[Rfam]
RNA sequence: CUGAGGUUUAAAUGCGCCUUGCAUUGGUUGAUGUGCCUGUGCGUGGGAAACGCCUCAAAGAUGG
Numbered sequence: 001c002u003g004a005g006g007u008u009u010a011a012a013u014g015c016g017c018c019u020u021g022c023a024u025u026g027g028u029u030g031a032u033g034u035g036c037c038u039g040u041g042c043g044u045g046g047g048a049a050a051c052g053c054c055u056c057a058a059a060g061a062u063g064g
Stems, first nucleotide, its partner, number of pairs: 002057006014044004022035003